The record is an 82-nucleotide RNA from Chrysodeixis includens, which matches "mir-998 microRNA precursor family" in Rfam. The family's consensus secondary structure was predicted with RNAalifold. The organism belongs to Chrysodeixis, within Eukaryota. Rfam 15.1 lists 83 matches to the family in 63 species. Its family is annotated with RISC complex and miRNA-mediated post-transcriptional gene silencing in the Gene Ontology.
RNA sequence: CGGGCGGCGCGCGCGAGCUGUGUCCCGUGCGGCUGCAGUGUGGCGUGUAGCACCAUGGGAUUCAGCUCACCCACGCCGCCAC
Numbered sequence: 001c002g003g004g005c006g007g008c009g010c011g012c013g014c015g016a017g018c019u020g021u022g023u024c025c026c027g028u029g030c031g032g033c034u035g036c037a038g039u040g041u042g043g044c045g046u047g048u049a050g051c052a053c054c055a056u057g058g059g060a061u062u063c064a065g066c067u068c069a070c071c072c073a074c075g076c077c078g079c080c081a082c
Stems, first nucleotide, its partner, number of pairs: 003080005009074001013071001015068002018065003023060007033050005